[Rfam]
Nucleotides: 074
Stems, first nucleotide, its partner, number of pairs: 013042003019074007026038002047062006
Number, partner (000 for none) and nucleotide at each position: 001000u002000u003000g004000c005000a006000a007000c008000u009000u010000c011000a012000a013042g014041g015040c016000c017000a018000u019074a020073g021072c022071a023070g024069a025068a026038g027037u028000a029000u030000u031000c032000a033000c034000a035000g036000c037027a038026c039000c040015g041014c042013c043000u044000g045000u046000c047062a048061g049060a050059u051058u052057c053000a054000a055000a056000u057052g058051a059050a060049u061048c062047u063000c064000c065000a066000a067000a068025u069024u070023c071022u072021g073020u074019u